A member of the RNA family "bantam microRNA precursor family" from Homarus americanus, 81 nucleotides long. A search with the family's covariance model found it, with a score of 81 bits. The organism belongs to Homarus, within Eukaryota. Pairs were carried over by alignment from the consensus structure, which was predicted with RNAalifold.
RNA sequence: CAAAAAAAACGAAACUGGUUUUCACAAUGAUUUGCCAGAUACAUUUAAUUCUGAGAUCAUUGUGAAAGCUGAUUUCGUAUC
Numbered sequence: 001c002a003a004a005a006a007a008a009a010c011g012a013a014a015c016u017g018g019u020u021u022u023c024a025c026a027a028u029g030a031u032u033u034g035c036c037a038g039a040u041a042c043a044u045u046u047a048a049u050u051c052u053g054a055g056a057u058c059a060u061u062g063u064g065a066a067a068g069c070u071g072a073u074u075u076c077g078u079a080u081c
Stems, first nucleotide, its partner, number of pairs: 009078006016071010028059006

Rfam links the family to the GO terms RISC complex and miRNA-mediated post-transcriptional gene silencing. The family has 28 seed sequences and 182 matches in Rfam 15.1.